[Rfam]
RNA sequence: ACGACCCCUGUGGGAGAGUGACCGGCCCGGCCGGAUCACGCCGAAGGAGCAACCGCCCCGGAACCUCUCAGGCCCCCGUACUACAGGCGAAUU
Number, nucleotide and partner (000 for none) at each position: 001a000002c000003g000004a000005c000006c000007c087008c086009u085010g084011u083012g082013g081014g000015a000016g000017a000018g000019u038020g037021a036022c000023c000024g000025g000026c000027c000028c000029g000030g000031c000032c000033g000034g000035a000036u021037c020038a019039c000040g073041c072042c071043g069044a068045a000046g000047g067048a066049g065050c000051a000052a000053c061054c060055g000056c000057c000058c000059c000060g054061g053062a000063a000064c000065c049066u048067c047068u044069c043070a000071g042072g041073c040074c000075c000076c000077c000078g000079u000080a000081c013082u012083a011084c010085a009086g008087g007088c000089g000090a000091a000092u000093u000
Rfam assigns this 93-nucleotide RNA sequence from Novispirillum itersonii to the family "Glycine riboswitch aptamer". The family is grouped with related families in Rfam's "Glycine riboswitch clan".